[Rfam]
RNA sequence: GCGCUCAUGAGGGCAUGGUCCUGUCCAUGUGGUCUGGACCUACCCUCCACGAGCAAGAAAAACAGAACUGGUUUGGGGGUGUCCCAUCUGUGUGGACAUGGGACACCAUGGUUUUCAGUACAACA
Numbered sequence: 001g002c003g004c005u006c007a008u009g010a011g012g013g014c015a016u017g018g019u020c021c022u023g024u025c026c027a028u029g030u031g032g033u034c035u036g037g038a039c040c041u042a043c044c045c046u047c048c049a050c051g052a053g054c055a056a057g058a059a060a061a062a063c064a065g066a067a068c069u070g071g072u073u074u075g076g077g078g079g080u081g082u083c084c085c086a087u088c089u090g091u092g093u094g095g096a097c098a099u100g101g102g103a104c105a106c107c108a109u110g111g112u113u114u115u116c117a118g119u120a121c122a123a124c125a
Stems, first nucleotide, its partner, number of pairs: 003054004008049001012044002017040004025032002065121001067119005073111003078107008087096003
RNA: Small Cajal body specific RNA 23
Organism: Otolemur garnettii